The record is a 41-nucleotide sequence from Siminovitchia fortis, which matches "Ribosomal protein L19 leader" in Rfam. From the family's description: This family is a putative r-protein leader autoregulatory structure found in B. subtilis and other low-GC Gram-positive bacteria. It is located in the 5' untranslated regions of mRNAs encoding ribosomal protein L19 (rplS). Lineage of the source: Bacteria > Bacillati > Bacillota > Caryophanales > Siminovitchia. By type it is a cis-regulatory leader. On this family, see Zengel and Lindahl, Prog Nucleic Acid Res Mol Biol 1994: "Diverse mechanisms for regulating ribosomal protein synthesis in Escherichia coli". Rfam links the family to the GO term regulation of gene expression. Pairs were carried over by alignment from the consensus structure, which was predicted with CMfinder.

RNA sequence: ACGGUGUUCCGCUGCAACGAAAUGAUUUGCAAGAGCAUCGG
Numbered sequence: 001a002c003g004g005u006g007u008u009c010c011g012c013u014g015c016a017a018c019g020a021a022a023u024g025a026u027u028u029g030c031a032a033g034a035g036c037a038u039c040g041g
Base pairs, nucleotide, nucleotide: 003039004038005037006036007035008034009033013031014030015029016028017027